[Rfam]
Small nucleolar RNA SNORD121A: an 81-nucleotide RNA sequence from Propithecus coquereli. Its family is annotated with RNA processing and nucleolus in the Gene Ontology. Pairs were carried over by alignment from the consensus structure, which was predicted with WAR.

RNA sequence: CUGGAAAAGACAAUGAUGUUUUAUAUCCAAGCACAUAUCUGAGUUUGUGUGCAGACAGCAUGAAAACUGAGUCUUUUCCUA
Numbered sequence: 001c002u003g004g005a006a007a008a009g010a011c012a013a014u015g016a017u018g019u020u021u022u023a024u025a026u027c028c029a030a031g032c033a034c035a036u037a038u039c040u041g042a043g044u045u046u047g048u049g050u051g052c053a054g055a056c057a058g059c060a061u062g063a064a065a066a067c068u069g070a071g072u073c074u075u076u077u078c079c080u081a
Stems, first nucleotide, its partner, number of pairs: 003079004008074004